[Rfam]
RNA sequence: AUAAUGAUACUUCCGGGUUUCCCGGUCAGUUUGGAAUGACGGUGCGAUACCGAUGU
Dot-bracket structure: ...........(((((.....))))(((.(....).)))(((.......))))...